Record summary:
Shown here is a 180-nucleotide RNA from Chloroceryle aenea, a member of the family "Small Cajal body specific RNA 16". Rfam 15.1 lists 790 matches to the family in 514 species. The match comes from Rfam's covariance-model search (118 bits). Gene Ontology terms of the family: RNA processing and nucleolus. The organism belongs to Chloroceryle, within Eukaryota. scaRNAs are a specific class of small nuclear RNAs which localise to the Cajal bodies and guide the modification of RNA polymerase II transcribed spliceosomal RNAs U1, U2, U4, U5 and U12. ACA47 belongs to the H/ACA box class of guide RNAs as it has the predicted hairpin-hinge-hairpin-tail structure, the conserved H/ACA-box motifs and is found associated with GAR1. ACA47 is predicted to guide the pseudouridylation of residue U5 of the U1 spliceosomal snRNA. Rfam classes the family as a small Cajal body RNA.
[Rfam]
RNA sequence: CAGGGCUGGGGAAGGGCUGCUGGGCAGCAGGGCCAACAAGCCCAGCCUCGUCCCAGCCAGCCUCACCCGUGCCCGAGAUCAACCCCCCAGCGAGCUCCGUGCUGGGGACCAUCCCGUGCAGUAACAGGUGUGAGCAUUCAUGCAGAGUUUUGAUGGUCAUGUAUGAUACUGCAUACAACA
Numbered sequence: 001c002a003g004g005g006c007u008g009g010g011g012a013a014g015g016g017c018u019g020c021u022g023g024g025c026a027g028c029a030g031g032g033c034c035a036a037c038a039a040g041c042c043c044a045g046c047c048u049c050g051u052c053c054c055a056g057c058c059a060g061c062c063u064c065a066c067c068c069g070u071g072c073c074c075g076a077g078a079u080c081a082a083c084c085c086c087c088c089a090g091c092g093a094g095c096u097c098c099g100u101g102c103u104g105g106g107g108a109c110c111a112u113c114c115c116g117u118g119c120a121g122u123a124a125c126a127g128g129u130g131u132g133a134g135c136a137u138u139c140a141u142g143c144a145g146a147g148u149u150u151u152g153a154u155g156g157u158c159a160u161g162u163a164u165g166a167u168a169c170u171g172c173a174u175a176c177a178a179c180a
Stems, first nucleotide, its partner, number of pairs: 003074004008068003015062004019057004024053001027046002030043001032041002086107003089103004116174008125165002131159003135155004142149001